[Rfam]
RNA sequence: AACUGAGCCAUGAUGAAGAUUAGUAAUCUGUCUUUUUCACUCAAGAGAGCCGGUGGCGGGUGUGAACCGGUGUGUCGGGCAGAUGAAUGGACUUCUGAGCUUCCAGACCGAACCAAUUUGUGCAGUAGGCUUUGGCGAUCAGGUCUCAUCGUUACACGAGACACCUAUUAAGCAUGAUCGCUUGAUAUGACCAAAGUGAGCUGUUUUUCAGCUAAUAAAGGUGGUACCACGGGUUCCUCGUCCUUUUC
Numbered sequence: 001a002a003c004u005g006a007g008c009c010a011u012g013a014u015g016a017a018g019a020u021u022a023g024u025a026a027u028c029u030g031u032c033u034u035u036u037u038c039a040c041u042c043a044a045g046a047g048a049g050c051c052g053g054u055g056g057c058g059g060g061u062g063u064g065a066a067c068c069g070g071u072g073u074g075u076c077g078g079g080c081a082g083a084u085g086a087a088u089g090g091a092c093u094u095c096u097g098a099g100c101u102u103c104c105a106g107a108c109c110g111a112a113c114c115a116a117u118u119u120g121u122g123c124a125g126u127a128g129g130c131u132u133u134g135g136c137g138a139u140c141a142g143g144u145c146u147c148a149u150c151g152u153u154a155c156a157c158g159a160g161a162c163a164c165c166u167a168u169u170a171a172g173c174a175u176g177a178u179c180g181c182u183u184g185a186u187a188u189g190a191c192c193a194a195a196g197u198g199a200g201c202u203g204u205u206u207u208u209c210a211g212c213u214a215a216u217a218a219a220g221g222u223g224g225u226a227c228c229a230c231g232g233g234u235u236c237c238u239c240g241u242c243c244u245u246u247u248c
Stems, first nucleotide, its partner, number of pairs: 007100002015095004026084006038074003049071006103134001105132002108129002136151003199213005218245004229241005
RNA: T-box leader